The record is a 96-nucleotide RNA sequence from Lachnoclostridium sp. An131, which matches "Purine riboswitch aptamer" in Rfam. The match comes from Rfam's covariance-model search (53 bits). Gene Ontology term of the family: purine nucleobase biosynthetic process. The organism belongs to Lachnoclostridium, within Bacteria.

RNA sequence: AGAUAAUAAAGGUUUUGGACUUAUAUAAAUUCAUAAUAGGUUGAAUGUUUCUACCAGCUGCCGUAACAGUUGACUAUAAGCCGCCCUGUCAGGGGA
Number, nucleotide and partner (000 for none) at each position: 001a000002g000003a000004u000005a000006a000007u000008a000009a000010a000011g000012g000013u000014u000015u000016u000017g000018g082019a000020c080021u079022u078023a077024u076025a075026u000027a000028a000029a046030u045031u044032c043033a000034u000035a000036a000037u000038a000039g000040g000041u000042u000043g032044a031045a030046u029047g000048u000049u000050u000051c000052u000053a000054c000055c072056a071057g070058c069059u068060g067061c000062c000063g000064u000065a000066a000067c060068a059069g058070u057071u056072g055073a000074c000075u025076a024077u023078a022079a021080g020081c000082c018083g000084c000085c000086c000087u000088g000089u000090c000091a000092g000093g000094g000095g000096a000